A member of the RNA family "Iron response element II" from Brassica oleracea, 31 nucleotides long.
The family has 30 seed sequences and 5,197 matches in Rfam 15.1.
Taxonomically the source falls in Brassica oleracea (Eukaryota, Spermatophyta, Pentapetalae, rosids).
From the family's description: IRE, TFRC, SLC40A1, SDHB, SLC11A2, CDC42BPA, ACO2, ALAS2_H.SAPIENS, CDC14A, EPAS1, ALAS2, qoxD, Hao1, NDUFS1, transferrin, Aconitate.
On this family, see Koeller et al., Proc Natl Acad Sci U S A 1989: "A cytosolic protein binds to structural elements within the iron regulatory region of the transferrin receptor mRNA".
By type it is a cis-regulatory element.

[Rfam]
RNA sequence: GCGAUUUCAUCUACAGUGUUGGAUAAAUUGG
Numbered sequence: 001g002c003g004a005u006u007u008c009a010u011c012u013a014c015a016g017u018g019u020u021g022g023a024u025a026a027a028u029u030g031g
Base pairs, nucleotide, nucleotide: 002030003029004028005027006026007025009024010023011022012021013020014018